[Rfam]
The record is a 63-nucleotide sequence from Propithecus coquereli, which matches "U7 small nuclear RNA" in Rfam. About the family: Animal histone pre-mRNAs are spliced by a different mechanism than nuclear pre-mRNAs and self-splicing introns. This processing involves the U7 snRNP, which contains only one RNA species: U7. The 5' end of U7 RNA is thought to base-pair to a conserved spacer element downstream of the cleavage site in histone pre-mRNA. This family contains a number of annotated U7 pseudogenes. Lineage of the source: Eukaryota > Deuterostomia > Sarcopterygii > Primates > Propithecus.
RNA sequence: AACUGUUACAGCUCUUUUAGAAUUUGUCUAGCAAGUUUUCUAGUCCUCACUGGAAAAUCUCCC
Numbered sequence: 001a002a003c004u005g006u007u008a009c010a011g012c013u014c015u016u017u018u019a020g021a022a023u024u025u026g027u028c029u030a031g032c033a034a035g036u037u038u039u040c041u042a043g044u045c046c047u048c049a050c051u052g053g054a055a056a057a058u059c060u061c062c063c
Base pairs, nucleotide, nucleotide: 034060035059037056038055039054040053041052042051043050044049